Shown here is a 113-nucleotide sequence from Metabacillus sediminilitoris, a member of the family "Manganese Mn2+ riboswitch aptamer (yybP-ykoY)".
A reference for the family is Argaman et al. (2001), "Novel small RNA-encoding genes in the intergenic regions of Escherichia coli", Curr Biol.
Lineage of the source: Bacteria > Bacillati > Bacillota > Caryophanales > Metabacillus.
The family has 29 seed sequences and 1,126 matches in Rfam 15.1.
The base pairs follow the family's consensus structure.
Rfam's curators write: This RNA was originally discovered in E. coli during a large scale screen and was named SraF. The family was later found to exist upstream of related families of protein genes in many bacteria, including the the yybP and ykoK genes in B. subtilis.

RNA sequence: UCUUCCUUCAAAGGGGAGUAGCGUUCAGGGUAAAACCUGAAAACAAAGUCGUCAUUUCAUGGAUAUCUAUCCAUCGGCUUUGUUGGCAUGAUCGGAUCUUUACAAACAUGCUC
Numbered sequence: 001u002c003u004u005c006c007u008u009c010a011a012a013g014g015g016g017a018g019u020a021g022c023g024u025u026c027a028g029g030g031u032a033a034a035a036c037c038u039g040a041a042a043a044c045a046a047a048g049u050c051g052u053c054a055u056u057u058c059a060u061g062g063a064u065a066u067c068u069a070u071c072c073a074u075c076g077g078c079u080u081u082g083u084u085g086g087c088a089u090g091a092u093c094g095g096a097u098c099u100u101u102a103c104a105a106a107c108a109u110g111c112u113c
Stems, first nucleotide, its partner, number of pairs: 025040003042084010059074005